A member of the RNA family "Small nucleolar RNA SNORA81" from Spermophilus dauricus, 183 nucleotides long.
Lineage of the source: Eukaryota > Metazoa > Bilateria > Mammalia > Spermophilus.

RNA sequence: ACCUUCUCUAAGGUCUGUACUAAAAUUUCAGAAACUAGUAUCAUGUCUUGGUAUUUGAAAUAAAGCUAGCAGAGUAAGCACAAGAAUCAAAAAAUAGCUGAACAGCUGUAACAGAAGAAAAACUGAAAUAGAUCUCUUCUAAGACACCCAAAUUCCCACCUUCUAAGAGUUGGUAUAAUAAUA
Numbered sequence: 001a002c003c004u005u006c007u008c009u010a011a012g013g014u015c016u017g018u019a020c021u022a023a024a025a026u027u028u029c030a031g032a033a034a035c036u037a038g039u040a041u042c043a044u045g046u047c048u049u050g051g052u053a054u055u056u057g058a059a060a061u062a063a064a065g066c067u068a069g070c071a072g073a074g075u076a077a078g079c080a081c082a083a084g085a086a087u088c089a090a091a092a093a094a095u096a097g098c099u100g101a102a103c104a105g106c107u108g109u110a111a112c113a114g115a116a117g118a119a120a121a122a123c124u125g126a127a128a129u130a131g132a133u134c135u136c137u138u139c140u141a142a143g144a145c146a147c148c149c150a151a152a153u154u155c156c157c158a159c160c161u162u163c164u165a166a167g168a169g170u171u172g173g174u175a176u177a178a179u180a181a182u183a
Stems, first nucleotide, its partner, number of pairs: 015074002018071001020069003026063002031055002034052005040046002099177002102174002109172004125154001129150001131148001
Notes
It is annotated as an H/ACA-box small nucleolar RNA. The base pairs follow the family's consensus structure, which was predicted with WAR.